RNA sequence: UAUGAAUCUUGUGGAAACACUUCUGCAAAACUAGAUACUAGUGUGCAGAAGUGCUUCUGCUACAUUUUGG
Number, nucleotide and partner (000 for none) at each position: 001u070002a000003u000004g067005a066006a065007u064008c000009u062010u000011g060012u059013g058014g057015a056016a055017a000018c053019a052020c051021u050022u049023c048024u047025g046026c045027a044028a042029a000030a000031c041032u040033a000034g000035a000036u000037a000038c000039u000040a032041g031042u028043g000044u027045g026046c025047a024048g023049a022050a021051g020052u019053g018054c000055u016056u015057c014058u013059g012060c011061u000062a009063c000064a007065u006066u005067u004068u000069g000070g001
Record summary: mir-147 microRNA precursor family: a 70-nucleotide RNA sequence from Castor canadensis. The source organism's lineage runs through Eukaryota, Chordata, Gnathostomata, Castoridae and Castor. It scores 60 bits against the family's covariance model.